[Rfam]
RNA: A. fumigatus sRNA Afu_309
RNA sequence: UUCAACACAUCACGGAUCUGUGUCCAGAGAUCCUGUUCACGGGAAAGAAAGAGACAGCUUGCUGUUUUUCUUUUGCUUCUGUGUUUCGGUUGAUCACUGGACAGUUCGACGACUUAAGGAGCCAUCACUUUUCUUUUGUUGGUGGUCUUUUAUUAUCCGGUCGACAGAUCUCAGAUUAAAGGUCGGCACUGGGUGUUCACUCUGGUCUUGAGCUCCCUUGUCUUCGGACUUGGUGAGCUCGGCUGGAGCCCCCAGUUUGCUGACGGCGUCAUAUUCCUACUCUCUUUACCGAUUUUGGCCGUCGGCCGAUGAGGUUAGGGAAAAACCAUGACCAGCCAACAUUA
Number, nucleotide and partner (000 for none) at each position: 001u000002u000003c000004a000005a000006c000007a000008c000009a000010u000011c000012a000013c000014g171015g170016a169017u168018c167019u166020g165021u164022g102023u101024c100025c099026a098027g097028a000029g095030a094031u093032c092033c089034u088035g087036u000037u000038c083039a082040c000041g079042g078043g077044a000045a000046a000047g000048a000049a000050a071051g070052a069053g000054a065055c064056a063057g062058c000059u000060u000061g000062c057063u056064g055065u054066u000067u000068u000069u052070c051071u050072u000073u000074u000075g000076c000077u043078u042079c041080u000081g000082u039083g038084u000085u000086u000087c035088g034089g033090u000091u000092g032093a031094u030095c029096a000097c027098u026099g025100g024101a023102c022103a000104g000105u000106u000107c000108g000109a000110c163111g162112a161113c160114u159115u000116a000117a150118g149119g148120a000121g146122c145123c144124a143125u142126c000127a000128c000129u000130u000131u000132u000133c000134u000135u000136u000137u000138g000139u000140u000141g000142g125143u124144g123145g122146u121147c000148u119149u118150u117151u000152a000153u000154u000155a000156u000157c000158c000159g114160g113161u112162c111163g110164a021165c020166a019167g018168a017169u016170c015171u014172c000173a000174g000175a000176u000177u000178a000179a000180a000181g000182g260183u259184c000185g000186g000187c000188a256189c255190u254191g253192g252193g251194u000195g000196u000197u000198c000199a000200c000201u000202c000203u000204g244205g243206u242207c241208u000209u000210g240211a239212g238213c237214u236215c235216c233217c232218u000219u000220g000221u000222c000223u000224u000225c000226g000227g000228a000229c000230u000231u000232g217233g216234u000235g215236a214237g213238c212239u211240c210241g207242g206243c205244u204245g000246g000247a000248g000249c000250c000251c193252c192253c191254a190255g189256u188257u000258u000259g183260c182261u000262g000263a000264c000265g337266g336267c335268g332269u331270c330271a329272u328273a000274u000275u000276c000277c000278u000279a000280c000281u321282c320283u319284c318285u317286u000287u000288a315289c314290c313291g000292a000293u000294u000295u000296u000297g307298g306299c305300c304301g000302u000303c000304g300305g299306c298307c297308g000309a000310u000311g000312a000313g290314g289315u288316u000317a285318g284319g283320g282321a281322a000323a000324a000325a000326c000327c000328a272329u271330g270331a269332c268333c000334a000335g267336c266337c265338a000339a000340c000341a000342u000343u000344a000